A member of the RNA family "SAM riboswitch aptamer (S box leader)" from Ruminococcus sp. CAG:563, 87 nucleotides long.
RNA sequence: AACCUAUAAAGAGUGCGUGAGAGACAAGCUCGAUGACCGCACGACAACCUGCCUAACGGUAAGGUGCCAAUGCUUGAACGAUGGGUU
Numbered sequence: 001a002a003c004c005u006a007u008a009a010a011g012a013g014u015g016c017g018u019g020a021g022a023g024a025c026a027a028g029c030u031c032g033a034u035g036a037c038c039g040c041a042c043g044a045c046a047a048c049c050u051g052c053c054u055a056a057c058g059g060u061a062a063g064g065u066g067c068c069a070a071u072g073c074u075u076g077a078a079c080g081a082u083g084g085g086u087u
Base pairs, nucleotide, nucleotide: 001087002086003085004084005083006082007081013042014041015040016039017038021031022030023029025076026075027074028073043068045066046065048064049063050061051060052059053058072079